[Rfam]
RNA sequence: AAUAGUCGAUCGCUGAAUUUUCUCUAAGAAAAGCGGGGGAACCAAGUUUUCUGGGGUGAAUCGGUCCGGACCUUACGUCUUUGGACUGAAGGGCGCAUUCUCACUGCCCUAAUCCGACAGCUAACCUCGUAAGCGAAGUGGGAAGGAUAG
Numbered sequence: 001a002a003u004a005g006u007c008g009a010u011c012g013c014u015g016a017a018u019u020u021u022c023u024c025u026a027a028g029a030a031a032a033g034c035g036g037g038g039g040a041a042c043c044a045a046g047u048u049u050u051c052u053g054g055g056g057u058g059a060a061u062c063g064g065u066c067c068g069g070a071c072c073u074u075a076c077g078u079c080u081u082u083g084g085a086c087u088g089a090a091g092g093g094c095g096c097a098u099u100c101u102c103a104c105u106g107c108c109c110u111a112a113u114c115c116g117a118c119a120g121c122u123a124a125c126c127u128c129g130u131a132a133g134c135g136a137a138g139u140g141g142g143a144a145g146g147a148u149a150g
Base pairs, nucleotide, nucleotide: 011135012134013133014132018032019031020030021029022028033130034129035128036127037126038125043053044052054115055114056113062088063087064086065085066084067083068082069081070080091109092108093107094106
This 150-nucleotide RNA sequence from Paenibacillus mucilaginosus belongs to the Rfam family "c-di-AMP riboswitch aptamer (ydaO/yuaA leader)". The source organism's lineage runs through Bacteria, Bacillati, Bacillota, Bacilli and Paenibacillus mucilaginosus.